[Rfam]
RNA sequence: GUCUGGUCCGAGUGAAGUGAUGUUUACAACUAAUUGAUCAUGACCAGUUACAGAUUUCUUCGUUUCUUCUCCACUUCCACUGCUUCACUUGACUAGCCUUAA
Number, nucleotide and partner (000 for none) at each position: 001g098002u000003c096004u095005g094006g093007u092008c091009c000010g090011a089012g000013u000014g086015a085016a081017g080018u079019g078020a000021u000022g000023u000024u000025u000026a000027c000028a064029a063030c062031u000032a060033a059034u000035u000036g000037a000038u000039c000040a000041u000042g000043a000044c000045c000046a000047g000048u000049u000050a000051c000052a000053g000054a000055u000056u000057u000058c000059u033060u032061c000062g030063u029064u028065u000066c000067u000068u000069c000070u000071c000072c000073a000074c000075u000076u000077c000078c019079a018080c017081u016082g000083c000084u000085u015086c014087a000088c000089u011090u010091g008092a007093c006094u005095a004096g003097c000098c001099u000100u000101a000102a000
Rfam assigns this 102-nucleotide sequence from Theropithecus gelada to the family "Y RNA". It is annotated as a non-coding RNA gene. For this family Rfam cites "Conserved features of Y RNAs: a comparison of experimentally derived secondary structures" (Teunissen et al., Nucleic Acids Res, 2000). The source organism's lineage runs through Eukaryota, Chordata, Vertebrata, Primates and Theropithecus.